[Rfam]
RNA: mir-71 microRNA precursor family
RNA sequence: GCAACAUGAAAGACAAGGUAGUGAGAUGUACAGCAGCAAACAUCUCACUACCCAUGUCUUUCACGUCACC
Dot-bracket structure: .......((((((((.((.(((((((((............))))))))).))..))))))))........